The record is a 160-nucleotide RNA from Firmicutes bacterium CAG:124, which matches "glmS glucosamine-6-phosphate activated ribozyme aptamer" in Rfam.
Rfam describes the family as follows. This entry contains a glucosamine-6-phosphate activated ribozyme that is found in the mRNA for GlmS. GlmS is an enzyme that uses fructose-6-phosphate and glutamine to generate glucosamine-6-phosphate. The ribozyme catalyses self cleavage of the glmS mRNA that is thought to regulate GlmS activity.
By type it is a riboswitch.
The match comes from Rfam's covariance-model search (73 bits).
Taxonomically the source falls in Bacillota (Bacteria, Bacillati).
[Rfam]
RNA sequence: UCGCCAUCACAAGCGCCAUGCGCCUGCCGGACUCCGGCAGGACAACGAGGAGGAACGUGAUCGAGGAUUCGGCGGAUGCGUUCCCGUGCAGUCUCUGUGCGCGUAACGAAGUCAGAAAUAUGCGGGCGACCGCAAAACAAAGGGGCUUUGAACAGAGGAU
Numbered sequence: 001u002c003g004c005c006a007u008c009a010c011a012a013g014c015g016c017c018a019u020g021c022g023c024c025u026g027c028c029g030g031a032c033u034c035c036g037g038c039a040g041g042a043c044a045a046c047g048a049g050g051a052g053g054a055a056c057g058u059g060a061u062c063g064a065g066g067a068u069u070c071g072g073c074g075g076a077u078g079c080g081u082u083c084c085c086g087u088g089c090a091g092u093c094u095c096u097g098u099g100c101g102c103g104u105a106a107c108g109a110a111g112u113c114a115g116a117a118a119u120a121u122g123c124g125g126g127c128g129a130c131c132g133c134a135a136a137a138c139a140a141a142g143g144g145g146c147u148u149u150g151a152a153c154a155g156a157g158g159a160u
Stems, first nucleotide, its partner, number of pairs: 020043001023041006030034001052084005061072004085103006107150007121134005